[Rfam]
RNA sequence: CCAAAGGCUCUUUUCAGAGCCACCCACAUCUUCCUAGAAAGAGCGU
Numbered sequence: 001c002c003a004a005a006g007g008c009u010c011u012u013u014u015c016a017g018a019g020c021c022a023c024c025c026a027c028a029u030c031u032u033c034c035u036a037g038a039a040a041g042a043g044c045g046u
Base pairs, nucleotide, nucleotide: 006021007020008019009018010017011016

The family of this 46-nucleotide sequence from Origma solitaria is "Histone 3' UTR stem-loop". Rfam describes the family as follows. The mRNAs of metazoan histone genes lack a poly-A tail. 3' end processing occurs at a site between a highly conserved stem-loop (modelled by this family) and a purine rich region around 20 nts downstream (the histone downstream element, or HDE). The stem-loop is bound by a 31 kDa stem-loop binding protein (SLBP - also termed the histone hairpin binding protein, or HBP). Together with U7 snRNA binding of the HDE, SLBP binding nucleate s the formation of the processing complex. Lineage of the source: Eukaryota > Sarcopterygii > Sauria > Meliphagoidea > Origma. The family has 50 seed sequences and 44,596 matches in Rfam 15.1. Its family is annotated with mRNA 3'-end processing by stem-loop binding and cleavage in the Gene Ontology. The match comes from Rfam's covariance-model search (42 bits). By type it is a cis-regulatory element.